[Rfam]
RNA sequence: CGCGUCGACGAAGAACCGCUAUCGCAGCUCACGCACAGACCGGCCACCCCGCCGUCUUCCUCAGCUGUGGGGAAAGUCCCCGGAGAACGGCCGAGCGUCAUGUCCCUGCCCACGGUAGACCCUUGCCUCUAAGCUCGGCGGGCGCGGACGCGAACGGGACGGGCGGACGCGCUGCUCCCUCCCUCUCCACCCGCGCGGGUGGACGAGGGAGGAGCUCGCCCCAGGCCCCGCUCGGCCGGCUUGUCGGCCUGCAACGACGCGUCCAUUCAAGGCGGCGGGACGCGAAGAUACGAGCUGCCCGUUCGCUGGGCGUGUCCGCGCAGGCGGAGCCACGGUUACUCAUAGACACAGUUAUGCGGUUGCGCUGCCAAAGCGUGAACACAAUGGGGCUUACUCUCGCUCGCCGC
Numbered sequence: 001c002g003c004g005u006c007g008a009c010g011a012a013g014a015a016c017c018g019c020u021a022u023c024g025c026a027g028c029u030c031a032c033g034c035a036c037a038g039a040c041c042g043g044c045c046a047c048c049c050c051g052c053c054g055u056c057u058u059c060c061u062c063a064g065c066u067g068u069g070g071g072g073a074a075a076g077u078c079c080c081c082g083g084a085g086a087a088c089g090g091c092c093g094a095g096c097g098u099c100a101u102g103u104c105c106c107u108g109c110c111c112a113c114g115g116u117a118g119a120c121c122c123u124u125g126c127c128u129c130u131a132a133g134c135u136c137g138g139c140g141g142g143c144g145c146g147g148a149c150g151c152g153a154a155c156g157g158g159a160c161g162g163g164c165g166g167a168c169g170c171g172c173u174g175c176u177c178c179c180u181c182c183c184u185c186u187c188c189a190c191c192c193g194c195g196c197g198g199g200u201g202g203a204c205g206a207g208g209g210a211g212g213a214g215c216u217c218g219c220c221c222c223a224g225g226c227c228c229c230g231c232u233c234g235g236c237c238g239g240c241u242u243g244u245c246g247g248c249c250u251g252c253a254a255c256g257a258c259g260c261g262u263c264c265a266u267u268c269a270a271g272g273c274g275g276c277g278g279g280a281c282g283c284g285a286a287g288a289u290a291c292g293a294g295c296u297g298c299c300c301g302u303u304c305g306c307u308g309g310g311c312g313u314g315u316c317c318g319c320g321c322a323g324g325c326g327g328a329g330c331c332a333c334g335g336u337u338a339c340u341c342a343u344a345g346a347c348a349c350a351g352u353u354a355u356g357c358g359g360u361u362g363c364g365c366u367g368c369c370a371a372a373g374c375g376u377g378a379a380c381a382c383a384a385u386g387g388g389g390c391u392u393a394c395u396c397u398c399g400c401u402c403g404c405c406g407c
Base pairs, nucleotide, nucleotide: 002407003406004405006403007402008401009399010398011397014361015360016359017358018357019356022070023069024068025067026066027065028064038053040051042049043048074392075391076390078389079388080387081386262328263327264326267324268323272319273318274317275316280313281312282311283310297306298305362376363375364374365373366372

The family of this 407-nucleotide sequence from Phanerochaete sordida is "RNase MRP".
Gene Ontology terms of the family: ribonuclease MRP activity, ribonuclease MRP complex and rRNA processing.
A search with the family's covariance model found it, with a score of 60 bits.
It is annotated as a ribozyme.